[Rfam]
The family of this 98-nucleotide sequence from Herbinix luporum is "SAM riboswitch aptamer (S box leader)". Pairs were carried over by alignment from the consensus structure, which is taken from published work.
RNA sequence: CUCUUAUUCAGAGUGAUGGAGAGGUAAGGCUCGAUGAAGUCACGGCAACCCCUGUAAUCGGAAGGUGCCAACCUGAGCGAGUAAUCGAACAAUAAGAG
Numbered sequence: 001c002u003c004u005u006a007u008u009c010a011g012a013g014u015g016a017u018g019g020a021g022a023g024g025u026a027a028g029g030c031u032c033g034a035u036g037a038a039g040u041c042a043c044g045g046c047a048a049c050c051c052c053u054g055u056a057a058u059c060g061g062a063a064g065g066u067g068c069c070a071a072c073c074u075g076a077g078c079g080a081g082u083a084a085u086c087g088a089a090c091a092a093u094a095a096g097a098g
Stems, first nucleotide, its partner, number of pairs: 001098008013043005021032003029074001044069004049065002051061002054058001078087003
The SAM riboswitch is found upstream of a number of genes which code for proteins involved in methionine or cysteine biosynthesis in Gram-positive bacteria. The SAM riboswitch acts at the level of transcription termination control. The predicted structure consists of a complex stem-loop region followed by a single stem loop terminator region. An alternative and mutually exclusive form involves bases in the 3' segment of helix 1 with those in the 5' region of helix 5 to form a structure termed the anti-terminator form. This entry represents the conserved core of the complex structure involving helices 1-4.